The record is a 185-nucleotide RNA sequence from Pipistrellus kuhlii, which matches "Small nucleolar RNA SNORA23" in Rfam. The base pairs follow the family's consensus structure, which was predicted with RNAalifold. The members of this family belong to the H/ACA class of snoRNAs which are thought to guide the sites of modification of uridines to pseudouridines. This family includes human snoRNA ACA23 (SNORA23) and mouse snoMBI-1. It scores 170 bits against the family's covariance model. Rfam links the family to the GO terms RNA processing and nucleolus. It is annotated as an H/ACA-box small nucleolar RNA. The source organism's lineage runs through Eukaryota, Tetrapoda, Boreoeutheria, Yangochiroptera and Pipistrellus.
[Rfam]
RNA sequence: GAUGGGAUGUGUGCAUAGUCUCCAUCUGUGUCUGAUGGCCGUGUCUGUCUGUGUUUUGCAUUCAGAUCCUGCUAUCCACACAAACAUCACGCAGCCAAAGAUUAAGUUGGGAUCAUAGUACUGGUCUAGUGUUGUCUCGUUGGACAUAAUUUACCACUGGCCAGCCUCCAAAUUCCCAUACAGAA
Numbered sequence: 001g002a003u004g005g006g007a008u009g010u011g012u013g014c015a016u017a018g019u020c021u022c023c024a025u026c027u028g029u030g031u032c033u034g035a036u037g038g039c040c041g042u043g044u045c046u047g048u049c050u051g052u053g054u055u056u057u058g059c060a061u062u063c064a065g066a067u068c069c070u071g072c073u074a075u076c077c078a079c080a081c082a083a084a085c086a087u088c089a090c091g092c093a094g095c096c097a098a099a100g101a102u103u104a105a106g107u108u109g110g111g112a113u114c115a116u117a118g119u120a121c122u123g124g125u126c127u128a129g130u131g132u133u134g135u136c137u138c139g140u141u142g143g144a145c146a147u148a149a150u151u152u153a154c155c156a157c158u159g160g161c162c163a164g165c166c167u168c169c170a171a172a173u174u175c176c177c178a179u180a181c182a183g184a185a
Base pairs, nucleotide, nucleotide: 013092014091016089029082030081031080033078034077036074037073038072039071041069043067044066045065046064047063050060051059052058108178109177110176111175112174121164122163123162124161125160126159128158129157130156131155133148134147135146137144138143